[Rfam]
RNA sequence: GAGACACCCUUAUGGGGCAGGGCUUGCCUCAGUCGGGCUUUGGUACUCACUGAGUAUGCCCCUUCAAUGUGUCACU
Number, nucleotide and partner (000 for none) at each position: 001g075002a000003g073004a072005c071006a070007c069008c000009c000010u066011u000012a064013u000014g062015g061016g060017g059018c058019a057020g000021g000022g055023c054024u000025u000026g000027c000028c000029u053030c052031a051032g050033u049034c000035g047036g046037g044038c043039u000040u000041u000042g000043g038044u037045a000046c036047u035048c000049a033050c032051u031052g030053a029054g023055u022056a000057u019058g018059c017060c016061c015062c014063u000064u012065c000066a010067a000068u000069g007070u006071g005072u004073c003074a000075c001076u000
RNA: mir-9229 microRNA precursor family